RNA: TPP riboswitch aptamer (THI element)
Organism: Antrihabitans cavernicola
RNA sequence: ACGACUGACACGGGGUGUUCCGCCAGUGCGGAGCUGAGAUGAAACCCGCGAACCUGAUGCAGGUAAUGCUGACGAAGGGAUGUCAUGGCUGAUAUUU
Numbered sequence: 001a002c003g004a005c006u007g008a009c010a011c012g013g014g015g016u017g018u019u020c021c022g023c024c025a026g027u028g029c030g031g032a033g034c035u036g037a038g039a040u041g042a043a044a045c046c047c048g049c050g051a052a053c054c055u056g057a058u059g060c061a062g063g064u065a066a067u068g069c070u071g072a073c074g075a076a077g078g079g080a081u082g083u084c085a086u087g088g089c090u091g092a093u094a095u096u097u
Stems, first nucleotide, its partner, number of pairs: 006085005011048004016042001017034005053078003060071003